RNA sequence: UUAGAGGAAUCCGAAAAUCUAACAGAGUAGGAA
Number, nucleotide and partner (000 for none) at each position: 001u000002u000003a020004g019005a018006g000007g000008a000009a000010u032011c031012c030013g000014a000015a000016a000017a000018u005019c004020u003021a000022a000023c000024a000025g000026a000027g000028u000029a000030g012031g011032a010033a000